[Rfam]
RNA sequence: GCUGAGCUCGGUAACGCGGGCUUGUAACCCGAGUGGGGGCUUUAAAGUGAUGGGACGUGGACUAUGCACGUAAGGUCGGGUUCAGGCUGUUUCUUAUCUGGCCCGCCCGUUCCAAGCCAGGAGUUGAGCCAAGGCAUCCUAGUGAAGACCUGGGUGUCGUGGCUCCUAGAGGGGAGGGCACAGCGUGAGGCUGGUCUCACAGAGCAGCGAUCACUUCCCGCUCCUGGCAGUGGAAGGAUUACGGGCCGGUGCCACCUGGAUCCGCAUGGCCUGAUGGGCUGAUCUAAUUGAACCAUCACUUUU
Numbered sequence: 001g002c003u004g005a006g007c008u009c010g011g012u013a014a015c016g017c018g019g020g021c022u023u024g025u026a027a028c029c030c031g032a033g034u035g036g037g038g039g040c041u042u043u044a045a046a047g048u049g050a051u052g053g054g055a056c057g058u059g060g061a062c063u064a065u066g067c068a069c070g071u072a073a074g075g076u077c078g079g080g081u082u083c084a085g086g087c088u089g090u091u092u093c094u095u096a097u098c099u100g101g102c103c104c105g106c107c108c109g110u111u112c113c114a115a116g117c118c119a120g121g122a123g124u125u126g127a128g129c130c131a132a133g134g135c136a137u138c139c140u141a142g143u144g145a146a147g148a149c150c151u152g153g154g155u156g157u158c159g160u161g162g163c164u165c166c167u168a169g170a171g172g173g174g175a176g177g178g179c180a181c182a183g184c185g186u187g188a189g190g191c192u193g194g195u196c197u198c199a200c201a202g203a204g205c206a207g208c209g210a211u212c213a214c215u216u217c218c219c220g221c222u223c224c225u226g227g228c229a230g231u232g233g234a235a236g237g238a239u240u241a242c243g244g245g246c247c248g249g250u251g252c253c254a255c256c257u258g259g260a261u262c263c264g265c266a267u268g269g270c271c272u273g274a275u276g277g278g279c280u281g282a283u284c285u286a287a288u289u290g291a292a293c294c295a296u297c298a299c300u301u302u303u
Base pairs, nucleotide, nucleotide: 001040002039003038004023005022006021007020008019009018010017028037029036030035044302045301046300047299048298049297050296051295052294053293056290057289058287060285061283063281064280069276070275071274073272074271075270076269077268078263079262080261081260082259083258084257085256086255088254089253092251098249099248100247101246102245103244104243105242107237108236110235111234112233113232114231116228117227118226119225120224121223122222123221124220126165127164128163129162130161131160133158134157135156136155137154138153139152142149143148166171172219173218174217175216176215177214182211184209185208186207191202192201193200
The family of this 303-nucleotide sequence from Populus trichocarpa is "Plant signal recognition particle RNA". Pairs were carried over by alignment from the consensus structure, which is taken from published work. A search with the family's covariance model found it, with a score of 258 bits.